[Rfam]
RNA sequence: AGUCACAAGUCUGAGGCCAUAGCAGAAGCAUUCAUGGCAUGGCCUGUCAGAGUCCAAUGGAUCUGUGAAUUCUGCU
Number, nucleotide and partner (000 for none) at each position: 001a000002g000003u000004c000005a000006c000007a000008a000009g000010u000011c000012u000013g000014a000015g044016g043017c042018c041019a000020u000021a076022g075023c074024a073025g072026a071027a070028g040029c000030a000031u000032u000033c000034a000035u000036g000037g000038c000039a000040u028041g018042g017043c016044c015045u000046g000047u000048c065049a064050g063051a062052g000053u060054c059055c000056a000057a000058u000059g054060g053061a000062u051063c050064u049065g048066u000067g000068a000069a000070u027071u026072c025073u024074g023075c022076u021
Mammalian CPEB3 ribozyme: a 76-nucleotide RNA sequence from Crocodylus porosus.
It scores 45 bits against the family's covariance model.
Lineage of the source: Eukaryota > Deuterostomia > Teleostomi > Archelosauria > Crocodylus.